RNA sequence: GUCAUGCAAGUGGCAACGAUCACUGCCGAGUACCCUCGGCCCCUGGUCCACCGCACCCGCGGAUGAUAGCGGGUGAGGCUGCUGGCAUGUCCCGUAAGUGGCUGUCCGGCCUUUGCCGACAGUCACGGGUUCGACACUGCGCUACCCCGCAGGGCGACACAUGCACGGGUUUUCGUGACUGUCAUUCCUUUGAGGCGCAUCACCGGCAAGCGGCCGGCG
Numbered sequence: 001g002u003c004a005u006g007c008a009a010g011u012g013g014c015a016a017c018g019a020u021c022a023c024u025g026c027c028g029a030g031u032a033c034c035c036u037c038g039g040c041c042c043c044u045g046g047u048c049c050a051c052c053g054c055a056c057c058c059g060c061g062g063a064u065g066a067u068a069g070c071g072g073g074u075g076a077g078g079c080u081g082c083u084g085g086c087a088u089g090u091c092c093c094g095u096a097a098g099u100g101g102c103u104g105u106c107c108g109g110c111c112u113u114u115g116c117c118g119a120c121a122g123u124c125a126c127g128g129g130u131u132c133g134a135c136a137c138u139g140c141g142c143u144a145c146c147c148c149g150c151a152g153g154g155c156g157a158c159a160c161a162u163g164c165a166c167g168g169g170u171u172u173u174c175g176u177g178a179c180u181g182u183c184a185u186u187c188c189u190u191u192g193a194g195g196c197g198c199a200u201c202a203c204c205g206g207c208a209a210g211c212g213g214c215c216g217g218c219g
Stems, first nucleotide, its partner, number of pairs: 018048005025040006051078002055074006089130002092128003099125008150192005156186001159182003162178001164177004203217005

Notes: The record is a 219-nucleotide RNA sequence from Chromatocurvus halotolerans, which matches "ilvB-OMG RNA" in Rfam. The organism belongs to Chromatocurvus, within Bacteria.